The family of this 378-nucleotide sequence from Prochlorococcus marinus is "Bacterial RNase P class A". Rfam classes the family as a ribozyme.
RNA sequence: GAAAGCAGGAGAGGCAAUCGCAAAAAUGUUUUAUUUUGUUUUGAAAAUAAAUCUUUUUGAGGAAAGUCCGGGCUCCCAUAUGGUCAGGCUUGCUGGGUAAUUCCCAGUGCGGGUAACCGUGAGGAUAGUGCCACAGAAACAUACCGCCUAAUACUUUAUGUAUGGCAAGGGUGCAAGGGUGCGGUAAGAGCGCACCAGCAACAUUGAGAAGUGUUGGCUAGGUAAACCCCGGCUGGGUGCAAGGCUAAGUAGAUUUAUGACCAUUAAAAAAUCUACUUUUAAGCGCCGCUUGAGGCUGUGAAGUAAUUCCAGUCCUAGAUAGAUGAUUGCCCAUCUUAUUAAGAUGAACAGAACCCGGCUUAUGACCUGCUUUCUACU
Numbered sequence: 001g002a003a004a005g006c007a008g009g010a011g012a013g014g015c016a017a018u019c020g021c022a023a024a025a026a027u028g029u030u031u032u033a034u035u036u037u038g039u040u041u042u043g044a045a046a047a048u049a050a051a052u053c054u055u056u057u058u059g060a061g062g063a064a065a066g067u068c069c070g071g072g073c074u075c076c077c078a079u080a081u082g083g084u085c086a087g088g089c090u091u092g093c094u095g096g097g098u099a100a101u102u103c104c105c106a107g108u109g110c111g112g113g114u115a116a117c118c119g120u121g122a123g124g125a126u127a128g129u130g131c132c133a134c135a136g137a138a139a140c141a142u143a144c145c146g147c148c149u150a151a152u153a154c155u156u157u158a159u160g161u162a163u164g165g166c167a168a169g170g171g172u173g174c175a176a177g178g179g180u181g182c183g184g185u186a187a188g189a190g191c192g193c194a195c196c197a198g199c200a201a202c203a204u205u206g207a208g209a210a211g212u213g214u215u216g217g218c219u220a221g222g223u224a225a226a227c228c229c230c231g232g233c234u235g236g237g238u239g240c241a242a243g244g245c246u247a248a249g250u251a252g253a254u255u256u257a258u259g260a261c262c263a264u265u266a267a268a269a270a271a272u273c274u275a276c277u278u279u280u281a282a283g284c285g286c287c288g289c290u291u292g293a294g295g296c297u298g299u300g301a302a303g304u305a306a307u308u309c310c311a312g313u314c315c316u317a318g319a320u321a322g323a324u325g326a327u328u329g330c331c332c333a334u335c336u337u338a339u340u341a342a343g344a345u346g347a348a349c350a351g352a353a354c355c356c357g358g359c360u361u362a363u364g365a366c367c368u369g370c371u372u373u374c375u376a377c378u
Stems, first nucleotide, its partner, number of pairs: 001374009011363001013331007021059006028052004064361003068358005073239001075237002082264001087234003091231002093107005108122001109120004123229002128227002130223003144170002146166003151163004178196006198218001199216007243287003246282001249276006294314005300309003
Gene Ontology terms of the family: ribonuclease P activity, tRNA processing and dimeric ribonuclease P complex. Taxonomically the source falls in Prochlorococcus marinus subsp. pastoris (Bacteria, Bacillati, Cyanophyceae, Prochlorococcus).